Notes
Shown here is a 67-nucleotide sequence from Dysgonomonas sp. Marseille-P4677, a member of the family "DUF805 RNA". A search with the family's covariance model found it, with a score of 67 bits. Rfam classes the family as a cis-regulatory element. The base pairs follow the family's consensus structure, which is taken from published work. Lineage of the source: Bacteria > Pseudomonadati > Bacteroidota > Bacteroidia > Dysgonomonas. Rfam 15.1 lists 281 matches to the family in 219 species. Its Rfam clan is "DUF805 clan".
RNA sequence: AAACUAUGGAGUUCAGAAACCAAAGACAAACGAGGCGGAACCGAAAAGCCAUAUGAGUAGGACACUA
Numbered sequence: 001a002a003a004c005u006a007u008g009g010a011g012u013u014c015a016g017a018a019a020c021c022a023a024a025g026a027c028a029a030a031c032g033a034g035g036c037g038g039a040a041c042c043g044a045a046a047a048g049c050c051a052u053a054u055g056a057g058u059a060g061g062a063c064a065c066u067a
Stems, first nucleotide, its partner, number of pairs: 007022003034050003041061002